RNA sequence: UUGUUCCUUUUUGCUCUGUCUAUGCCUCUUUGAAAAUUGGUUCUUAAGAAGUAUGGGGCAUGGGAAAAUGAGGUAA
Dot-bracket structure: .........(((.((.(((.(((.(.((((.(...........).)))).).)))..))).)).))).........

mir-202 microRNA precursor family: a 76-nucleotide RNA sequence from Sapayoa aenigma. Its family is annotated with RISC complex and miRNA-mediated post-transcriptional gene silencing in the Gene Ontology. The base pairs follow the family's consensus structure, which was predicted with RNAalifold. The organism belongs to Sapayoa, within Eukaryota.